[Rfam]
RNA sequence: CUUAACCGAACGCUGAAUCCCAUCAAGGGAGCGGGGGAACCAUCGAAGCCGCCUGUCGCCAGGACCGGCUUCACGGGGUGAAUCGCGGGCAGGCUCAGCUUGCGCGCGUAGGGCAUUCUCUGGCCCGAAUCCGGCAGCUAACCUCGCAAGCGGACAAGAGAGACGAC
Numbered sequence: 001c002u003u004a005a006c007c008g009a010a011c012g013c014u015g016a017a018u019c020c021c022a023u024c025a026a027g028g029g030a031g032c033g034g035g036g037g038a039a040c041c042a043u044c045g046a047a048g049c050c051g052c053c054u055g056u057c058g059c060c061a062g063g064a065c066c067g068g069c070u071u072c073a074c075g076g077g078g079u080g081a082a083u084c085g086c087g088g089g090c091a092g093g094c095u096c097a098g099c100u101u102g103c104g105c106g107c108g109u110a111g112g113g114c115a116u117u118c119u120c121u122g123g124c125c126c127g128a129a130u131c132c133g134g135c136a137g138c139u140a141a142c143c144u145c146g147c148a149a150g151c152g153g154a155c156a157a158g159a160g161a162g163a164c165g166a167c
Stems, first nucleotide, its partner, number of pairs: 011152004018030003031147006041075001076132003084108004111126004
RNA: c-di-AMP riboswitch aptamer (ydaO/yuaA leader)